A member of the RNA family "RNase MRP" from Oxylabes madagascariensis, 263 nucleotides long.
The family is grouped with related families in Rfam's "RNaseP clan".
For this family Rfam cites "Secondary structure of RNase MRP RNA as predicted by phylogenetic comparison" (Schmitt et al., FASEB J, 1993).
RNA sequence: GGAUGUUCUGAAGACCUGCUCGCCAGGCCACGCACAGAGGACCUCGGUUCUCCAUGGGCCCCACACCCACCCAGGGAAAAGUCCUCGGAUCACCAGCAAAGAGCACCGGGAGCUGAUGUGCCUCUGCCCACCACCCCAUGCCACCCUCCGUCAAGACACCUGCGGGCCGAGCAGGUGAGUGUGAGGUGGGCCCUUGUCACAGCCACAGACACGCAGGCAGCGUGGCAGGUCUGCCAACAGAACGGGGCUCACUCUCAGGCUUU
Numbered sequence: 001g002g003a004u005g006u007u008c009u010g011a012a013g014a015c016c017u018g019c020u021c022g023c024c025a026g027g028c029c030a031c032g033c034a035c036a037g038a039g040g041a042c043c044u045c046g047g048u049u050c051u052c053c054a055u056g057g058g059c060c061c062c063a064c065a066c067c068c069a070c071c072c073a074g075g076g077a078a079a080a081g082u083c084c085u086c087g088g089a090u091c092a093c094c095a096g097c098a099a100a101g102a103g104c105a106c107c108g109g110g111a112g113c114u115g116a117u118g119u120g121c122c123u124c125u126g127c128c129c130a131c132c133a134c135c136c137c138a139u140g141c142c143a144c145c146c147u148c149c150g151u152c153a154a155g156a157c158a159c160c161u162g163c164g165g166g167c168c169g170a171g172c173a174g175g176u177g178a179g180u181g182u183g184a185g186g187u188g189g190g191c192c193c194u195u196g197u198c199a200c201a202g203c204c205a206c207a208g209a210c211a212c213g214c215a216g217g218c219a220g221c222g223u224g225g226c227a228g229g230u231c232u233g234c235c236a237a238c239a240g241a242a243c244g245g246g247g248c249u250c251a252c253u254c255u256c257a258g259g260c261u262u263u
Base pairs, nucleotide, nucleotide: 003263005261007259008258009257010256011255015217016216017215018214019213023075024074026071027070037052038051039050040049041048042047080249081248083247084246085245086244096106108125109124110123112121113120127190128189129188134186135185137183138182139181143180144179146177148174150172151171159166160165220234221233222232224230